[Rfam]
RNA sequence: GAAGACCCUGUUGAGCUUGACUCUAGUCCGACUAUGUGAAACGAGUUGGGAGGUGUAGCCUUAAGUGGGAGUUUUUAAACGUUUGUGAAAGACCACUACUCCCAAUCUUGUUUUACUUACUCCAUUGAGCUCGAUUGUUACUCGUUUAGAGUGAUUUAUUUAAGAAUCAAGUCUUUUUUUUUUCUGAGGAGAGAUGAAUAGCUUGGAGGACAUUGUCAGAUGGGGAGUUUGGCUGGGGCGGCACAUCUGCUACAAGACAACGCAGGUGUCCCAAGAUGAGCUCGAUGAGACCAGAAAUCUCAUAUAGACCAAAAGGGGAUAAGCUCAUUUGAUUUAUAUUUUCAGUACGAAUAGAAACUGUGAAAGCAUGGCCUAUCGAUCCUUUAAAUUUUUAGGUAUAUAUCCUUUUAGAGGUGUCAGAAAAGUUACCACAGGGAUAACUGGCUUGUGGCAGCCAAGCGUUCCUAGCGACGUUGCUUUUUGAUCCUUCGAUGUCGGCUCUUCCUAUCAUUGUGAAGCAGCAUUCACCAAGUGUUGGAUUGUUCACCCACUAAUAGGGAACGUGAGCUGGGUUUAGACCGUCGUGAGACAGGUUAGUU
Numbered sequence: 001g002a003a004g005a006c007c008c009u010g011u012u013g014a015g016c017u018u019g020a021c022u023c024u025a026g027u028c029c030g031a032c033u034a035u036g037u038g039a040a041a042c043g044a045g046u047u048g049g050g051a052g053g054u055g056u057a058g059c060c061u062u063a064a065g066u067g068g069g070a071g072u073u074u075u076u077a078a079a080c081g082u083u084u085g086u087g088a089a090a091g092a093c094c095a096c097u098a099c100u101c102c103c104a105a106u107c108u109u110g111u112u113u114u115a116c117u118u119a120c121u122c123c124a125u126u127g128a129g130c131u132c133g134a135u136u137g138u139u140a141c142u143c144g145u146u147u148a149g150a151g152u153g154a155u156u157u158a159u160u161u162a163a164g165a166a167u168c169a170a171g172u173c174u175u176u177u178u179u180u181u182u183u184c185u186g187a188g189g190a191g192a193g194a195u196g197a198a199u200a201g202c203u204u205g206g207a208g209g210a211c212a213u214u215g216u217c218a219g220a221u222g223g224g225g226a227g228u229u230u231g232g233c234u235g236g237g238g239c240g241g242c243a244c245a246u247c248u249g250c251u252a253c254a255a256g257a258c259a260a261c262g263c264a265g266g267u268g269u270c271c272c273a274a275g276a277u278g279a280g281c282u283c284g285a286u287g288a289g290a291c292c293a294g295a296a297a298u299c300u301c302a303u304a305u306a307g308a309c310c311a312a313a314a315g316g317g318g319a320u321a322a323g324c325u326c327a328u329u330u331g332a333u334u335u336a337u338a339u340u341u342u343c344a345g346u347a348c349g350a351a352u353a354g355a356a357a358c359u360g361u362g363a364a365a366g367c368a369u370g371g372c373c374u375a376u377c378g379a380u381c382c383u384u385u386a387a388a389u390u391u392u393u394a395g396g397u398a399u400a401u402a403u404c405c406u407u408u409u410a411g412a413g414g415u416g417u418c419a420g421a422a423a424a425g426u427u428a429c430c431a432c433a434g435g436g437a438u439a440a441c442u443g444g445c446u447u448g449u450g451g452c453a454g455c456c457a458a459g460c461g462u463u464c465c466u467a468g469c470g471a472c473g474u475u476g477c478u479u480u481u482u483g484a485u486c487c488u489u490c491g492a493u494g495u496c497g498g499c500u501c502u503u504c505c506u507a508u509c510a511u512u513g514u515g516a517a518g519c520a521g522c523a524u525u526c527a528c529c530a531a532g533u534g535u536u537g538g539a540u541u542g543u544u545c546a547c548c549c550a551c552u553a554a555u556a557g558g559g560a561a562c563g564u565g566a567g568c569u570g571g572g573u574u575u576a577g578a579c580c581g582u583c584g585u586g587a588g589a590c591a592g593g594u595u596a597g598u599u
Stems, first nucleotide, its partner, number of pairs: 007435004012431002014427005020228004027220002030217003036116010046105007064097005071080002120208005130201002138154005171195009231244001232242003245267006270371002276328006282308002285303006309318002333357003337353005359368003382413006394406003444485001446483001448482001450478006459469002496571001497569004501563001502560005509534002513528005536550003540546001577595004581590003
Shown here is a 599-nucleotide part of an RNA from Galdieria sulphuraria, a member of the family "Eukaryotic large subunit ribosomal RNA".
Rfam links the family to the GO terms ribosome and structural constituent of ribosome.
It scores 2696 bits against the family's covariance model.